A member of the RNA family "TPP riboswitch aptamer (THI element)" from Sphaerisporangium krabiense, 112 nucleotides long. Rfam's curators write: Vitamin B(1) in its active form thiamin pyrophosphate (TPP) is an essential coenzyme that is synthesised by coupling of pyrimidine and thiazole moieties in bacteria. The previously detected thiamin-regulatory element, thi box was extended, resulting in a new, highly conserved RNA secondary structure, the THI element, which is widely distributed in eubacteria and also occurs in some archaea. The source organism's lineage runs through Bacteria, Bacillati, Actinomycetes, Streptosporangiales and Sphaerisporangium.
[Rfam]
RNA sequence: CGUCAGACGCGCGGGAGUCCGGCGAGACCGGGCUGAGAGGAGGGCUGGCGGCCCUCGACCGCAAAGACCUGAUCCGGAUCAUGCCGGCGAAGGGAGCGAACAUGGACGUGGU
Numbered sequence: 001c002g003u004c005a006g007a008c009g010c011g012c013g014g015g016a017g018u019c020c021g022g023c024g025a026g027a028c029c030g031g032g033c034u035g036a037g038a039g040g041a042g043g044g045c046u047g048g049c050g051g052c053c054c055u056c057g058a059c060c061g062c063a064a065a066g067a068c069c070u071g072a073u074c075c076g077g078a079u080c081a082u083g084c085c086g087g088c089g090a091a092g093g094g095a096g097c098g099a100a101c102a103u104g105g106a107c108g109u110g111g112u
Stems, first nucleotide, its partner, number of pairs: 008098003011062004017033005040056007068093003074087004
Dot-bracket structure: .......(((((((..(((((.......)))))......(((((((...)))))))..)))).....(((...((((......))))...)))..)))..............